The record is an 89-nucleotide RNA from Paenibacillus abyssi, which matches "c-di-GMP-I riboswitch aptamer" in Rfam. Gene Ontology term of the family: cyclic-di-GMP binding. The base pairs follow the family's consensus structure, which is taken from published work.
[Rfam]
RNA sequence: AAUCGAAAAAGGCAGCCUUAUUGAAAGAUAAGUACGCAAAACUACAGACCUAAGGAAUGGUAUGAUUCUAUGGUGGCUGAGUUACCGAA
Numbered sequence: 001a002a003u004c005g006a007a008a009a010a011g012g013c014a015g016c017c018u019u020a021u022u023g024a025a026a027g028a029u030a031a032g033u034a035c036g037c038a039a040a041a042c043u044a045c046a047g048a049c050c051u052a053a054g055g056a057a058u059g060g061u062a063u064g065a066u067u068c069u070a071u072g073g074u075g076g077c078u079g080a081g082u083u084a085c086c087g088a089a
Stems, first nucleotide, its partner, number of pairs: 012037002017032006040083004045079003048074003055068004